c-di-GMP-I riboswitch aptamer: an 88-nucleotide RNA sequence from Planococcus lenghuensis.
RNA sequence: AACUGAAAAAGGCAAACUUCUCCGAAAGGAAAGGACGCAAAGCCGCGAACCUAACCGCCGGUCGGCGUACGGAAGUCAGGCUGCCAGG
Numbered sequence: 001a002a003c004u005g006a007a008a009a010a011g012g013c014a015a016a017c018u019u020c021u022c023c024g025a026a027a028g029g030a031a032a033g034g035a036c037g038c039a040a041a042g043c044c045g046c047g048a049a050c051c052u053a054a055c056c057g058c059c060g061g062u063c064g065g066c067g068u069a070c071g072g073a074a075g076u077c078a079g080g081c082u083g084c085c086a087g088g
Stems, first nucleotide, its partner, number of pairs: 012038002017033003021030003041082004047077002050072002056067004